[Rfam]
RNA: TPP riboswitch aptamer (THI element)
RNA sequence: AUCAAUGACUCGGGGUGCCUCGACCGCCAGGUUAAGGCUGAGAAAUACCCGUAUUACCUGAACUGGAUCAUGCCAGCGUAGGGAAGUCACGGUACCCAUUC
Numbered sequence: 001a002u003c004a005a006u007g008a009c010u011c012g013g014g015g016u017g018c019c020u021c022g023a024c025c026g027c028c029a030g031g032u033u034a035a036g037g038c039u040g041a042g043a044a045a046u047a048c049c050c051g052u053a054u055u056a057c058c059u060g061a062a063c064u065g066g067a068u069c070a071u072g073c074c075a076g077c078g079u080a081g082g083g084a085a086g087u088c089a090c091g092g093u094a095c096c097c098a099u100u101c
Stems, first nucleotide, its partner, number of pairs: 006089005011051004016045001017038004057082004063076004